This 73-nucleotide sequence from Methanomassiliicoccaceae archaeon DOK belongs to the Rfam family "tRNA". The family's RNA type in Rfam is transfer RNA. The source organism's lineage runs through Archaea, Methanobacteriati, Thermoplasmata, Methanomassiliicoccales and Methanomassiliicoccaceae. Gene Ontology term of the family: triplet codon-amino acid adaptor activity.
RNA sequence: GCCGCUGUAGCUCAGUAGGUAGAGCGUGUGACUGUUAAUCACAAGGUCCUCGGUUCAAAUCCGUGCGGCGGCG
Numbered sequence: 001g002c003c004g005c006u007g008u009a010g011c012u013c014a015g016u017a018g019g020u021a022g023a024g025c026g027u028g029u030g031a032c033u034g035u036u037a038a039u040c041a042c043a044a045g046g047u048c049c050u051c052g053g054u055u056c057a058a059a060u061c062c063g064u065g066c067g068g069c070g071g072c073g
Base pairs, nucleotide, nucleotide: 001072002071003070004069005068006067007066010025011024012023013022027043028042029041030040031039049065051063052062053061